[Rfam]
Background
This 104-nucleotide sequence from Sphingobacterium sp. JB170 belongs to the Rfam family "SAM riboswitch aptamer (S box leader)". NCBI's taxonomy places the organism under Bacteria, Pseudomonadati, Bacteroidota, Sphingobacteriaceae, Sphingobacterium. The match comes from Rfam's covariance-model search (73 bits). Rfam links the family to the GO term regulation of gene expression.
RNA sequence: CGCUUAUAGAGAAAGGUAGAGGGAGUAGACCCUGUGAAACCUUAGCAACCUGACGCGCGUCAAGGUGCUACAUUCUACUCACACUAAGGUGAGAAUGAUAAGUG
Numbered sequence: 001c002g003c004u005u006a007u008a009g010a011g012a013a014a015g016g017u018a019g020a021g022g023g024a025g026u027a028g029a030c031c032c033u034g035u036g037a038a039a040c041c042u043u044a045g046c047a048a049c050c051u052g053a054c055g056c057g058c059g060u061c062a063a064g065g066u067g068c069u070a071c072a073u074u075c076u077a078c079u080c081a082c083a084c085u086a087a088g089g090u091g092a093g094a095a096u097g098a099u100a101a102g103u104g
Base pairs, nucleotide, nucleotide: 001104002103003102004101005100006099007098013043014042015041016040017039021032022031023030026077027076028075029074044069045068046067047066049065050064051062052061053060054059078093079092080091081090082089